[Rfam]
RNA sequence: AUCGCCUGGGGAUCUUGUUAAAAUGCAGGUCCUGAUUCAGUAAGUCUGCAUCAGGCCUAAGAUUUUGCAUUCCUAACAAGCUCCCAGGUGACGCCAA
Numbered sequence: 001a002u003c004g005c006c007u008g009g010g011g012a013u014c015u016u017g018u019u020a021a022a023a024u025g026c027a028g029g030u031c032c033u034g035a036u037u038c039a040g041u042a043a044g045u046c047u048g049c050a051u052c053a054g055g056c057c058u059a060a061g062a063u064u065u066u067g068c069a070u071u072c073c074u075a076a077c078a079a080g081c082u083c084c085c086a087g088g089u090g091a092c093g094c095c096a097a
Stems, first nucleotide, its partner, number of pairs: 003090003009084003014080007022071002025068005032061002